[Rfam]
RNA sequence: GGCAGAGUAGAACUUUAUGCGUCAAGUGCCUUCUGAACAGGGAGUUGUCAGUUGGACGAAGAAGAAAUUCGCGGUAUAAGGUUCGCAUCCCGCUGCU
Dot-bracket structure: (((((....(((((((((((((...((.((..((((...[[[.[...))))..))))...(((....)))))).)))))))))).].]]]..)))))
The record is a 97-nucleotide RNA sequence from Lachnobacterium bovis, which matches "THF (Tetrahydrofolate) riboswitch aptamer" in Rfam.
The source organism's lineage runs through Bacteria, Bacillati, Bacillota, Clostridia and Lachnobacterium bovis.
Rfam describes the family as follows. Tetrahydrofolate (THF) riboswitch was first reported for Ames et al. as an RNA motif in 5' untranslated (5'-UTR)regions of folate transport and biosynthesis genes in Firmicutes genomes.
The family's consensus secondary structure is taken from published work.
A reference for the family is Trausch et al. (2011), "The structure of a tetrahydrofolate-sensing riboswitch reveals two ligand binding sites in a single aptamer", Structure.
Gene Ontology term of the family: tetrahydrofolate metabolic process.